[Rfam]
mir-290 microRNA precursor family: a 67-nucleotide sequence from Microcebus murinus. A search with the family's covariance model found it, with a score of 71 bits. Its family is annotated with miRNA-mediated post-transcriptional gene silencing and RISC complex in the Gene Ontology.

RNA sequence: GUGGCACUCAAACUGUGGGGGCACUUUCUGUUAUGUGACGAAAGUGCCGCUACUUUUUGAGUGUUAC
Numbered sequence: 001g002u003g004g005c006a007c008u009c010a011a012a013c014u015g016u017g018g019g020g021g022c023a024c025u026u027u028c029u030g031u032u033a034u035g036u037g038a039c040g041a042a043a044g045u046g047c048c049g050c051u052a053c054u055u056u057u058u059g060a061g062u063g064u065u066a067c
Stems, first nucleotide, its partner, number of pairs: 004064009015053004020048009